RNA: Small nucleolar RNA R16
RNA sequence: GAUGGCUAAUUAUGCUAUACCAAUUUCUUCUUAUUCUACACACCGCCUUGCUGUGUGAACAAAAGAAAACUCCGCUUAUUUUCUGAGGCCAUC
Numbered sequence: 001g002a003u004g005g006c007u008a009a010u011u012a013u014g015c016u017a018u019a020c021c022a023a024u025u026u027c028u029u030c031u032u033a034u035u036c037u038a039c040a041c042a043c044c045g046c047c048u049u050g051c052u053g054u055g056u057g058a059a060c061a062a063a064a065g066a067a068a069a070c071u072c073c074g075c076u077u078a079u080u081u082u083c084u085g086a087g088g089c090c091a092u093c
Base pairs, nucleotide, nucleotide: 003091004090005089006088007087